[Rfam]
RNA sequence: CCCCCAAGGGGAAGCGAAGACCCUAUAGAGCUUCACUGCAGGCUGUCGCUGAGACGUGGUCGCUACUGUGCAGCAUAGGUAGAAGGCAUUACAGAGGUACCCGCGCUAGCGGGUCACCCAGCCACCAUUGAAAUACUACCCGGUAGUGACUGCGACUCUCACUCCUGGCGGAGAACACCGGUAGCCGGGCAGUUUGACUGGGGCGGUACGCGCUCGAAAAGAUAUCGAGCGCGCCCCAAGAUUUCCUCACUCGGGUCGGAAACCCGAGGCAGAGCGCAAGAGCAGAAGGAAGUCUGACAGUGACAUUCCCAACGAGUGUCGCUGACGCGAAAGCGUGGUCUAGCGAACCCACGAAGCCGAUUGAUGCGGCCCGUGGAUGACAGAAAAGCUACCUUAGGGAUAACAGAGUCGUCACUCGCAAGAGCACAUAUCGACCGAGUGGCUUGCUACCUCGAUGUCGGUUCCCUCCAUCCUGCCCGUGCAGACGCGGGCAAGGGUGAGGUUGUUCGCCUAUUAAAGGAGGUCGUGAGCUGGGUUUAGACCGUCGUGAGACAGGUCGGCUGCUAUCUAUUGGGGGUGUUUA
Numbered sequence: 001c002c003c004c005c006a007a008g009g010g011g012a013a014g015c016g017a018a019g020a021c022c023c024u025a026u027a028g029a030g031c032u033u034c035a036c037u038g039c040a041g042g043c044u045g046u047c048g049c050u051g052a053g054a055c056g057u058g059g060u061c062g063c064u065a066c067u068g069u070g071c072a073g074c075a076u077a078g079g080u081a082g083a084a085g086g087c088a089u090u091a092c093a094g095a096g097g098u099a100c101c102c103g104c105g106c107u108a109g110c111g112g113g114u115c116a117c118c119c120a121g122c123c124a125c126c127a128u129u130g131a132a133a134u135a136c137u138a139c140c141c142g143g144u145a146g147u148g149a150c151u152g153c154g155a156c157u158c159u160c161a162c163u164c165c166u167g168g169c170g171g172a173g174a175a176c177a178c179c180g181g182u183a184g185c186c187g188g189g190c191a192g193u194u195u196g197a198c199u200g201g202g203g204c205g206g207u208a209c210g211c212g213c214u215c216g217a218a219a220a221g222a223u224a225u226c227g228a229g230c231g232c233g234c235c236c237c238a239a240g241a242u243u244u245c246c247u248c249a250c251u252c253g254g255g256u257c258g259g260a261a262a263c264c265c266g267a268g269g270c271a272g273a274g275c276g277c278a279a280g281a282g283c284a285g286a287a288g289g290a291a292g293u294c295u296g297a298c299a300g301u302g303a304c305a306u307u308c309c310c311a312a313c314g315a316g317u318g319u320c321g322c323u324g325a326c327g328c329g330a331a332a333g334c335g336u337g338g339u340c341u342a343g344c345g346a347a348c349c350c351a352c353g354a355a356g357c358c359g360a361u362u363g364a365u366g367c368g369g370c371c372c373g374u375g376g377a378u379g380a381c382a383g384a385a386a387a388g389c390u391a392c393c394u395u396a397g398g399g400a401u402a403a404c405a406g407a408g409u410c411g412u413c414a415c416u417c418g419c420a421a422g423a424g425c426a427c428a429u430a431u432c433g434a435c436c437g438a439g440u441g442g443c444u445u446g447c448u449a450c451c452u453c454g455a456u457g458u459c460g461g462u463u464c465c466c467u468c469c470a471u472c473c474u475g476c477c478c479g480u481g482c483a484g485a486c487g488c489g490g491g492c493a494a495g496g497g498u499g500a501g502g503u504u505g506u507u508c509g510c511c512u513a514u515u516a517a518a519g520g521a522g523g524u525c526g527u528g529a530g531c532u533g534g535g536u537u538u539a540g541a542c543c544g545u546c547g548u549g550a551g552a553c554a555g556g557u558c559g560g561c562u563g564c565u566a567u568c569u570a571u572u573g574g575g576g577g578u579g580u581u582u583a
Stems, first nucleotide, its partner, number of pairs: 001577007010569003014564002022398004027394002029390005035193004042185007051158003055154014078140005085123003100113005162173004196209001197207003210232006235338002241293006247273002250268006274283002298324009326335001328333001349376005356370004407448003411445001412442007422432002459534001460532004464526001465523005472497002476491005500512004540558004544553003
This 583-nucleotide part of an RNA from Halonotius sp. J07HN4 belongs to the Rfam family "Archaeal large subunit ribosomal RNA". The organism belongs to Halonotius, within Archaea. The match comes from Rfam's covariance-model search (2697 bits). The base pairs follow the family's consensus structure, which is taken from published work. Rfam links the family to the GO terms structural constituent of ribosome and ribosome. On this family, see Yusupov et al., Science 2001: "Crystal structure of the ribosome at 5.5 A resolution".